[Rfam]
RNA: mir-1000 microRNA precursor family
Organism: Diabrotica balteata
RNA sequence: GGCUGUGAUAAUGUCCUGUCACAGCAGUACUGUCUUGUAUUUACUGCUGCUACGGGACAUUCUCACAGAC
Dot-bracket structure: ..((((.....(((((((...((((((((............))))))))...))))))).....))))..